[Rfam]
RNA: MIR5271 microRNA precursor family
Organism: Medicago truncatula
RNA sequence: UUUGGUUCGGAUAAUUGUGGUUACUAACGGUUCAGUUCGGUUAAUGAAUUGUUAUCAAAAUAAUGGUUCGGUUCAAGA
Numbered sequence: 001u002u003u004g005g006u007u008c009g010g011a012u013a014a015u016u017g018u019g020g021u022u023a024c025u026a027a028c029g030g031u032u033c034a035g036u037u038c039g040g041u042u043a044a045u046g047a048a049u050u051g052u053u054a055u056c057a058a059a060a061u062a063a064u065g066g067u068u069c070g071g072u073u074c075a076a077g078a
Base pairs, nucleotide, nucleotide: 004074005073007071008070009069010068011067012066014064015063016062017061018060025054026053027052028051029050030049031048032047033046034045